[Rfam]
RNA sequence: AAAAAGGGCUUCUGCCGUGCGUGGCACGGGGGGGGCCGUGUGCCACCCCCGCGGAAUCGACAUCAAGAGAUUUCGGAAGCACAAUUUUUGUGAGGGGGGCUGCUGGUAACCGCCUGUUCUGGCACCCCG
Number, nucleotide and partner (000 for none) at each position: 001a000002a000003a000004a000005a000006g000007g000008g080009c079010u078011u077012c076013u026014g025015c024016c023017g022018u000019g000020c000021g000022u017023g016024g015025c014026a013027c051028g050029g049030g048031g047032g046033g000034g044035g043036c042037c000038g000039u000040g000041u000042g036043c035044c034045a000046c032047c031048c030049c029050c028051g027052c075053g074054g073055a072056a071057u070058c069059g000060a000061c000062a000063u000064c000065a000066a000067g000068a000069g058070a057071u056072u055073u054074c053075g052076g012077a011078a010079g009080c008081a000082c000083a000084a000085u000086u000087u000088u000089u000090g000091u000092g000093a000094g000095g000096g000097g127098g126099g125100c000101u000102g123103c122104u121105g120106g119107u000108a118109a117110c116111c000112g000113c000114c000115u000116g110117u109118u108119c106120u105121g104122g103123c102124a000125c099126c098127c097128c000129g000